[Rfam]
RNA sequence: UUUUUUUUUCAAUGUAAGUCGCUUUGGAUAAAAGCGUCUGCAAAAUGACUAAAU
Numbered sequence: 001u002u003u004u005u006u007u008u009u010c011a012a013u014g015u016a017a018g019u020c021g022c023u024u025u026g027g028a029u030a031a032a033a034g035c036g037u038c039u040g041c042a043a044a045a046u047g048a049c050u051a052a053a054u
Base pairs, nucleotide, nucleotide: 013043014041015040016039020036021035022034023033024032025031